[Rfam]
RNA: Small nucleolar RNA SNORA51
RNA sequence: GGCCCUCCUGAUUGAUGCUUACCACAGGUUCCGUUCUUACUCUGACCAUAUAGAAAAAGGGUAGGCAGAGUAGGCCUAUCCCACGUCGGCCUCAGCCCAGGCCCUGCGCCUGCUGGGUGUUAUGAAUGGGAAAACAUGG
Numbered sequence: 001g002g003c004c005c006u007c008c009u010g011a012u013u014g015a016u017g018c019u020u021a022c023c024a025c026a027g028g029u030u031c032c033g034u035u036c037u038u039a040c041u042c043u044g045a046c047c048a049u050a051u052a053g054a055a056a057a058a059g060g061g062u063a064g065g066c067a068g069a070g071u072a073g074g075c076c077u078a079u080c081c082c083a084c085g086u087c088g089g090c091c092u093c094a095g096c097c098c099a100g101g102c103c104c105u106g107c108g109c110c111u112g113c114u115g116g117g118u119g120u121u122a123u124g125a126a127u128g129g130g131a132a133a134a135c136a137u138g139g
Stems, first nucleotide, its partner, number of pairs: 002066003006061004027046001033040002079131005093117001098112005